[Rfam]
RNA sequence: GGGGAUGAUCGGUUUCGACAGCGGAUGUCGAAGCAGGGGAAGCGUGUCGAGGAAGCGGCCAUGAUCUCGUAAACCACAGGCCGAAAAAAAUAAUCGCCACUGUUAAGAGCGAUUCUCCCAAGGCGACGCAGUUCGCCCUCGCUGCCUGAUCAGGUAGCUAGGCAACUGCCCCUUACUUAAGGGAGUGUCAGCCCGGGGCUGUUCCCGACCCGGAUCCUGGCAUCAGCUAGGGGACUAAACCUUGAUCCCGGUCACGGGGUGAAGAGGGAAACCAAACAGUGACUGGGCCCGUCGGCGACUUGUUCGCGUGAUCGCCGGGGCCGAGAAAAUCACAGCGAACUGCACACGGAGAAGCCCUGGUUCCGCACCGUUGGACGCGGGUUCGAUUCCCGCCAUCUCCACAC
Dot-bracket structure: (((((((...........((((((.....(((.(((((....((((((((((...[[[[[....))))).........]]]]].....................................................(((.(((((........))))).))).......................((((((.(((((.(.[[[[[[).)))))...)))))).......]]]]]]....[[[[......((((((........]]]]...........)))))).(((((..(((.((...[[[[......)).))))))))..............]]]]...)))))......))))).)))....))))))...(((((.......))))))))))))....
Numbered sequence: 001g002g003g004g005a006u007g008a009u010c011g012g013u014u015u016c017g018a019c020a021g022c023g024g025a026u027g028u029c030g031a032a033g034c035a036g037g038g039g040a041a042g043c044g045u046g047u048c049g050a051g052g053a054a055g056c057g058g059c060c061a062u063g064a065u066c067u068c069g070u071a072a073a074c075c076a077c078a079g080g081c082c083g084a085a086a087a088a089a090a091u092a093a094u095c096g097c098c099a100c101u102g103u104u105a106a107g108a109g110c111g112a113u114u115c116u117c118c119c120a121a122g123g124c125g126a127c128g129c130a131g132u133u134c135g136c137c138c139u140c141g142c143u144g145c146c147u148g149a150u151c152a153g154g155u156a157g158c159u160a161g162g163c164a165a166c167u168g169c170c171c172c173u174u175a176c177u178u179a180a181g182g183g184a185g186u187g188u189c190a191g192c193c194c195g196g197g198g199c200u201g202u203u204c205c206c207g208a209c210c211c212g213g214a215u216c217c218u219g220g221c222a223u224c225a226g227c228u229a230g231g232g233g234a235c236u237a238a239a240c241c242u243u244g245a246u247c248c249c250g251g252u253c254a255c256g257g258g259g260u261g262a263a264g265a266g267g268g269a270a271a272c273c274a275a276a277c278a279g280u281g282a283c284u285g286g287g288c289c290c291g292u293c294g295g296c297g298a299c300u301u302g303u304u305c306g307c308g309u310g311a312u313c314g315c316c317g318g319g320g321c322c323g324a325g326a327a328a329a330u331c332a333c334a335g336c337g338a339a340c341u342g343c344a345c346a347c348g349g350a351g352a353a354g355c356c357c358u359g360g361u362u363c364c365g366c367a368c369c370g371u372u373g374g375a376c377g378c379g380g381g382u383u384c385g386a387u388u389c390c391c392g393c394c395a396u397c398u399c400c401a402c403a404c
Stems, first nucleotide, its partner, number of pairs: 001400007019373006030363003034359005043348005048069005056083005137162003141158005186222006193213005199207001201235006240267004250284006286322005293317003297313002302340004377393005
transfer-messenger RNA: a 404-nucleotide RNA sequence. From the family's description: Bacterial tmRNA, also known as 10Sa RNA or SsrA, is named for its dual tRNA and mRNA-like properties. Its role is to liberate the mRNA from a stalled ribosome. By type it is a non-coding RNA gene.